[Rfam]
RNA: Small nucleolar RNA snR60/Z15/Z230/Z193/J17
Organism: Cathartes aura
RNA sequence: AGGCUGUGUGUGAUGAUAGCAUAGUUCAGCAGAUGACCCGUGCUGAUCACUUUCUUUCGCUCCUAUCUGAUGCAGCCU
Numbered sequence: 001a002g003g004c005u006g007u008g009u010g011u012g013a014u015g016a017u018a019g020c021a022u023a024g025u026u027c028a029g030c031a032g033a034u035g036a037c038c039c040g041u042g043c044u045g046a047u048c049a050c051u052u053u054c055u056u057u058c059g060c061u062c063c064u065a066u067c068u069g070a071u072g073c074a075g076c077c078u
Base pairs, nucleotide, nucleotide: 004075005074006073007072008071